ROOL RNA: a 569-nucleotide sequence.
The family's RNA type in Rfam is small RNA.
The sequence is in the family's curated seed alignment.

[Rfam]
RNA sequence: GAUUUUAAACAAUCUACUAGAUAACCAAGUGCAGAGAGGGUGAUACCUCGCUUGGAUUGUGUACAUAAUUCCCGUUGCGCUUGUUGUGAGAUAUUGCAGGAAGAUAAGUAACUCUCUUUUGAGCAAUCGGAAGGGGUCAUGACGUGAAAGAAGAUUGAGGGUGUACAUAGUAUGGAGAUUGUGCGUAGUUAGACCAUUAUCAUACGGUGGCGGUGAGAAUAGACGCUCUCAGUGAGAGAAUAAUCUGGCAAGGCCUUAUGUAGCAGUAAGAACCAACCCAGAAAUGCUAAAAUAAACCGUUUUGCACUUGAGGUCGAGCAAUCGGCCAAUAACACUAAAGAUAAGUACAAGUAGCCCAAAUGUGCAGAUGAACGAUACUGAUAUUGUUAUGCUAAAACAAAUAUUCUGAAUGUCGGGUGAAAGUUGGACGUAACCAGUCGUGCCUAGCCAUUAAACCGCUACGGAAGUUAUAGGGUCGCUCCUUAUGGCUCAGACCGUGGUAGGCUAUCGGUCAAUAAAUUGCGUACAAUCGAAGUAGAGCGAAGGCUCAUUUGAUAGAUUGUUUAAAG
Numbered sequence: 001g002a003u004u005u006u007a008a009a010c011a012a013u014c015u016a017c018u019a020g021a022u023a024a025c026c027a028a029g030u031g032c033a034g035a036g037a038g039g040g041u042g043a044u045a046c047c048u049c050g051c052u053u054g055g056a057u058u059g060u061g062u063a064c065a066u067a068a069u070u071c072c073c074g075u076u077g078c079g080c081u082u083g084u085u086g087u088g089a090g091a092u093a094u095u096g097c098a099g100g101a102a103g104a105u106a107a108g109u110a111a112c113u114c115u116c117u118u119u120u121g122a123g124c125a126a127u128c129g130g131a132a133g134g135g136g137u138c139a140u141g142a143c144g145u146g147a148a149a150g151a152a153g154a155u156u157g158a159g160g161g162u163g164u165a166c167a168u169a170g171u172a173u174g175g176a177g178a179u180u181g182u183g184c185g186u187a188g189u190u191a192g193a194c195c196a197u198u199a200u201c202a203u204a205c206g207g208u209g210g211c212g213g214u215g216a217g218a219a220u221a222g223a224c225g226c227u228c229u230c231a232g233u234g235a236g237a238g239a240a241u242a243a244u245c246u247g248g249c250a251a252g253g254c255c256u257u258a259u260g261u262a263g264c265a266g267u268a269a270g271a272a273c274c275a276a277c278c279c280a281g282a283a284a285u286g287c288u289a290a291a292a293u294a295a296a297c298c299g300u301u302u303u304g305c306a307c308u309u310g311a312g313g314u315c316g317a318g319c320a321a322u323c324g325g326c327c328a329a330u331a332a333c334a335c336u337a338a339a340g341a342u343a344a345g346u347a348c349a350a351g352u353a354g355c356c357c358a359a360a361u362g363u364g365c366a367g368a369u370g371a372a373c374g375a376u377a378c379u380g381a382u383a384u385u386g387u388u389a390u391g392c393u394a395a396a397a398c399a400a401a402u403a404u405u406c407u408g409a410a411u412g413u414c415g416g417g418u419g420a421a422a423g424u425u426g427g428a429c430g431u432a433a434c435c436a437g438u439c440g441u442g443c444c445u446a447g448c449c450a451u452u453a454a455a456c457c458g459c460u461a462c463g464g465a466a467g468u469u470a471u472a473g474g475g476u477c478g479c480u481c482c483u484u485a486u487g488g489c490u491c492a493g494a495c496c497g498u499g500g501u502a503g504g505c506u507a508u509c510g511g512u513c514a515a516u517a518a519a520u521u522g523c524g525u526a527c528a529a530u531c532g533a534a535g536u537a538g539a540g541c542g543a544a545g546g547c548u549c550a551u552u553u554g555a556u557a558g559a560u561u562g563u564u565u566a567a568a569g
Stems, first nucleotide, its partner, number of pairs: 008565002012561001015558001018555001020553002025055005036049004057170006074112005081102002084099001086097004113136010138146003180529001188521001190519001195511001197344004203339001206336004210300005226238004244282005252274002255270003261289004303366005313326005348423001354418004359413001405494004427443001445507003457504001460500001464496001467490001469487007538549004